[Rfam]
Purine riboswitch aptamer: a 102-nucleotide sequence from Salinibacillus xinjiangensis. Rfam describes the family as follows. Riboswitches are metabolite binding domains within certain messenger RNAs that serve as precision sensors for their corresponding targets. The organism belongs to Salinibacillus, within Bacteria. Rfam links the family to the GO term purine nucleobase biosynthetic process. It scores 95 bits against the family's covariance model.
RNA sequence: AUAAAAUAAAUGAUUACCUCUCAUAUAAAGUUGGGAAUAUGGCCCAAAAGUUUCUACCUAGUUACCGUAAAUAACUAGACUAUGAGAGGAAGUAUUCGUAUA
Numbered sequence: 001a002u003a004a005a006a007u008a009a010a011u012g013a014u015u016a017c018c019u020c021u022c023a024u025a026u027a028a029a030g031u032u033g034g035g036a037a038u039a040u041g042g043c044c045c046a047a048a049a050g051u052u053u054c055u056a057c058c059u060a061g062u063u064a065c066c067g068u069a070a071a072u073a074a075c076u077a078g079a080c081u082a083u084g085a086g087a088g089g090a091a092g093u094a095u096u097c098g099u100a101u102a
Stems, first nucleotide, its partner, number of pairs: 018088008031047005058078007